[Rfam]
RNA sequence: UUAGCUGUGAAGCCAGAACUGAAGGAAGCGAAACGACAAAGUCCGGUACUGACGAACAGAAACUGUAUAAGAGGCAUUUAAUGGCGGAUAAGCGUCCACACCAACGCAACGUCCUAAGAUUACCAAAAGCCAUUAGAUGUAGAUACAGCAGGAAUUGGACAAAGGAAAAAGCUC
Numbered sequence: 001u002u003a004g005c006u007g008u009g010a011a012g013c014c015a016g017a018a019c020u021g022a023a024g025g026a027a028g029c030g031a032a033a034c035g036a037c038a039a040a041g042u043c044c045g046g047u048a049c050u051g052a053c054g055a056a057c058a059g060a061a062a063c064u065g066u067a068u069a070a071g072a073g074g075c076a077u078u079u080a081a082u083g084g085c086g087g088a089u090a091a092g093c094g095u096c097c098a099c100a101c102c103a104a105c106g107c108a109a110c111g112u113c114c115u116a117a118g119a120u121u122a123c124c125a126a127a128a129g130c131c132a133u134u135a136g137a138u139g140u141a142g143a144u145a146c147a148g149c150a151g152g153a154a155u156u157g158g159a160c161a162a163a164g165g166a167a168a169a170a171g172c173u174c
Stems, first nucleotide, its partner, number of pairs: 001016002004013003028174001030172001037165001041160006047153001049151003063148006074140003078136007086114004092107004
Group II catalytic intron D1-D4-3: a 174-nucleotide sequence from Flavobacterium macacae. A search with the family's covariance model found it, with a score of 123 bits. Rfam links the family to the GO term Group II intron splicing. The organism belongs to Flavobacterium, within Bacteria.